[Rfam]
RNA sequence: AUAAAGAACUGAUAGCAGUUAUUUUCAAAAAAUAAUUGAGGAAAGUCCGUACUCGCACUUGCUGGAAAGCAAGUAGUGUUAGUGCUAGACCGAAUAAGUCUAGGUAGGACUUUUUAAGUCCUGACGGCUGGCUGAUUAAUCUAAGUGUUAAGAAAUUUUAACAUAUGGUUAUCAAGUCUAUAAAAGUGCCAUAGAGACGAGUAAGCGGGAAACUGCGGAAGUGAGACGACGUAAACCCCACUAGCGAGCAAUCCAAAUACAAAAAAGAAAAAAUGGUAGGAGCAGUGAAGCGAGAGAAUAAUAAUCUCAAUUCGCUAAUUCCCUCCGGGGGAUUAAGAUAAAUUAUCAGUUAAAACAGAAUACGGCUUAUUCUU
Numbered sequence: 001a002u003a004a005a006g007a008a009c010u011g012a013u014a015g016c017a018g019u020u021a022u023u024u025u026c027a028a029a030a031a032a033u034a035a036u037u038g039a040g041g042a043a044a045g046u047c048c049g050u051a052c053u054c055g056c057a058c059u060u061g062c063u064g065g066a067a068a069g070c071a072a073g074u075a076g077u078g079u080u081a082g083u084g085c086u087a088g089a090c091c092g093a094a095u096a097a098g099u100c101u102a103g104g105u106a107g108g109a110c111u112u113u114u115u116a117a118g119u120c121c122u123g124a125c126g127g128c129u130g131g132c133u134g135a136u137u138a139a140u141c142u143a144a145g146u147g148u149u150a151a152g153a154a155a156u157u158u159u160a161a162c163a164u165a166u167g168g169u170u171a172u173c174a175a176g177u178c179u180a181u182a183a184a185a186g187u188g189c190c191a192u193a194g195a196g197a198c199g200a201g202u203a204a205g206c207g208g209g210a211a212a213c214u215g216c217g218g219a220a221g222u223g224a225g226a227c228g229a230c231g232u233a234a235a236c237c238c239c240a241c242u243a244g245c246g247a248g249c250a251a252u253c254c255a256a257a258u259a260c261a262a263a264a265a266a267g268a269a270a271a272a273a274u275g276g277u278a279g280g281a282g283c284a285g286u287g288a289a290g291c292g293a294g295a296g297a298a299u300a301a302u303a304a305u306c307u308c309a310a311u312u313c314g315c316u317a318a319u320u321c322c323c324u325c326c327g328g329g330g331g332a333u334u335a336a337g338a339u340a341a342a343u344u345a346u347c348a349g350u351u352a353a354a355a356c357a358g359a360a361u362a363c364g365g366c367u368u369a370u371u372c373u374u
Stems, first nucleotide, its partner, number of pairs: 004374003007370001008350007016038006043368003047365005052248005057074006080243005085103006104125001105123008126238002130178003138170004145164008186236002188232002202219001205216004252281003285315005316335008
Rfam assigns this 374-nucleotide sequence to the family "Bacterial RNase P class B". For this family Rfam cites "Ribonuclease P: unity and diversity in a tRNA processing ribozyme" (Frank and Pace, Annu Rev Biochem, 1998). Its Rfam clan is "RNaseP clan". The match comes from Rfam's covariance-model search (194 bits). Rfam describes the family as follows. Ribonuclease P (RNase P) is a ubiquitous endoribonuclease, found in archaea, bacteria and eukarya as well as chloroplasts and mitochondria. Its best characterised activity is the generation of mature 5'-ends of tRNAs by cleaving the 5'-leader elements of precursor-tRNAs. Cellular RNase Ps are ribonucleoproteins. RNA from bacterial RNase Ps retains its catalytic activity in the absence of the protein subunit, i.e. it is a ribozyme.